[Rfam]
RNA sequence: CGAUAUGCAAGCGCCCUACUCCUCCCAGAGGCGUUUGCGGGAACGGCAACACUCCUCCUCCCAGUUGCUGUUCGGUUAUUACUGAAAGCCUGCCGCAACUCCUCCCGCGGCAGGCUUUUUCG
Number, nucleotide and partner (000 for none) at each position: 001c000002g000003a000004u000005a000006u000007g038008c037009a036010a000011g034012c033013g032014c031015c030016c000017u000018a000019c000020u000021c000022c000023u000024c000025c000026c000027a000028g000029a000030g015031g014032c013033g012034u011035u000036u009037g008038c007039g000040g000041g073042a072043a071044c070045g069046g068047c067048a066049a065050c064051a000052c000053u000054c000055c000056u000057c000058c000059u000060c000061c000062c000063a000064g050065u049066u048067g047068c046069u045070g044071u043072u042073c041074g000075g000076u000077u000078a000079u000080u000081a000082c000083u000084g000085a000086a117087a116088g115089c114090c113091u112092g111093c110094c109095g108096c107097a000098a000099c000100u000101c000102c000103u000104c000105c000106c000107g096108c095109g094110g093111c092112a091113g090114g089115c088116u087117u086118u000119u000120u000121c000122g000
RNA: Alphaproteobacterial ar14
Organism: Rhizobium sp. BG4